A member of the RNA family "mir-160 microRNA precursor family" from Handroanthus impetiginosus, 88 nucleotides long.
A reference for the family is Rhoades et al. (2002), "Prediction of plant microRNA targets", Cell.

RNA sequence: GUAUGCCUGGCUCCCUGUAUGCCAUUUGCAGAGCACAUUGGAGAAGUCGAUGGUCUUCCGUACAUGGCGUAUGAGGAGCCAAGCAUAA
Numbered sequence: 001g002u003a004u005g006c007c008u009g010g011c012u013c014c015c016u017g018u019a020u021g022c023c024a025u026u027u028g029c030a031g032a033g034c035a036c037a038u039u040g041g042a043g044a045a046g047u048c049g050a051u052g053g054u055c056u057u058c059c060g061u062a063c064a065u066g067g068c069g070u071a072u073g074a075g076g077a078g079c080c081a082a083g084c085a086u087a088a
Stems, first nucleotide, its partner, number of pairs: 002087005008081007016073009027062003
Pairs were carried over by alignment from the consensus structure, which was predicted with PFOLD.